Description: This 73-nucleotide RNA from Mus musculus belongs to the Rfam family "mir-192/215 microRNA precursor family". Gene Ontology terms of the family: miRNA-mediated post-transcriptional gene silencing and RISC complex. From the family's description: This family represents the human microRNA (miRNA) precursors mir-192 and mir-215. Animal miRNAs are transcribed as ~70nt precursors and subsequently processed by the Dicer enzyme to give a ~22nt product. In this case the mature sequence comes from the 5' arm of the precursor. The extents of the hairpin precursors are not generally known and are estimated based on hairpin prediction. Lineage of the source: Eukaryota > Eumetazoa > Tetrapoda > Boreoeutheria > Mus. The sequence is in the family's curated seed alignment.
[Rfam]
RNA sequence: ACAGGAGAAUGACCUAUGAUUUGACAGACCGUGCAGCUGUGUAUGUCUGUCAUUCUGUAGGCCAAUAUUCUGU
Number, nucleotide and partner (000 for none) at each position: 001a073002c072003a071004g070005g069006a068007g000008a066009a000010u064011g063012a000013c061014c060015u059016a058017u000018g055019a054020u000021u000022u052023g051024a050025c049026a048027g047028a046029c045030c000031g000032u000033g000034c000035a000036g000037c000038u000039g000040u000041g000042u000043a000044u000045g029046u028047c027048u026049g025050u024051c023052a022053u000054u019055c018056u000057g000058u016059a015060g014061g013062c000063c011064a010065a000066u008067a000068u006069u005070c004071u003072g002073u001